This 223-nucleotide RNA sequence from Streptomyces sp. HG99 belongs to the Rfam family "Actinobacteria sRNA Ms_IGR-5".

RNA sequence: AAUCCGGAAGGGAGGUGGUUCGGCGAAUGUAUGAAAACCGGACAGGAGAGGUGGCUGCGGGCUAGCGGCCCGUCACCACAUCCAGUGCGGUGCCGGACCAGCGCGUGACAGCAGCGUGCAGCCGGCCCAAUCUCCAGCAGUCACCCGACCCGCGAGCUCGCCGGUACGUCCGGCCGGCUCCUCCGCCUGAGGCGGAGGGACCCGAGCUCGCGGGUCGUCUGCG
Numbered sequence: 001a002a003u004c005c006g007g008a009a010g011g012g013a014g015g016u017g018g019u020u021c022g023g024c025g026a027a028u029g030u031a032u033g034a035a036a037a038c039c040g041g042a043c044a045g046g047a048g049a050g051g052u053g054g055c056u057g058c059g060g061g062c063u064a065g066c067g068g069c070c071c072g073u074c075a076c077c078a079c080a081u082c083c084a085g086u087g088c089g090g091u092g093c094c095g096g097a098c099c100a101g102c103g104c105g106u107g108a109c110a111g112c113a114g115c116g117u118g119c120a121g122c123c124g125g126c127c128c129a130a131u132c133u134c135c136a137g138c139a140g141u142c143a144c145c146c147g148a149c150c151c152g153c154g155a156g157c158u159c160g161c162c163g164g165u166a167c168g169u170c171c172g173g174c175c176g177g178c179u180c181c182u183c184c185g186c187c188u189g190a191g192g193c194g195g196a197g198g199g200a201c202c203c204g205a206g207c208u209c210g211c212g213g214g215u216c217g218u219c220u221g222c223g
Stems, first nucleotide, its partner, number of pairs: 015058005060127004065122002068119002071116003146217013160178006
Overview
The match comes from Rfam's covariance-model search (81 bits). The source organism's lineage runs through Bacteria, Bacillati, Actinomycetota, Streptomycetaceae and Streptomyces.